[Rfam]
RNA sequence: UUGAACCUUCGGGGCAGGGUGAGGGGGCACAAACAACGUGCCAGCCAAUUCCCGAUCGGUGGUACAGCCCACGAGUCCAUUAGGACAUGAUCCGGUGUAAUUCCGGAGCCGACGGUAUAGUCCGGAUAGAAGAAGGUGUUG
Numbered sequence: 001u002u003g004a005a006c007c008u009u010c011g012g013g014g015c016a017g018g019g020u021g022a023g024g025g026g027g028c029a030c031a032a033a034c035a036a037c038g039u040g041c042c043a044g045c046c047a048a049u050u051c052c053c054g055a056u057c058g059g060u061g062g063u064a065c066a067g068c069c070c071a072c073g074a075g076u077c078c079a080u081u082a083g084g085a086c087a088u089g090a091u092c093c094g095g096u097g098u099a100a101u102u103c104c105g106g107a108g109c110c111g112a113c114g115g116u117a118u119a120g121u122c123c124g125g126a127u128a129g130a131a132g133a134a135g136g137u138g139u140u141g
Stems, first nucleotide, its partner, number of pairs: 003139001005137006017053003055121002057111002059072004067109002075086003091107005113124003
Shown here is a 141-nucleotide RNA from a Thermoflexales bacterium, a member of the family "FMN riboswitch aptamer (RFN element)".
A reference for the family is Wilt et al. (2020), "FMN riboswitch aptamer symmetry facilitates conformational switching through mutually exclusive coaxial stacking configurations", J Struct Biol X.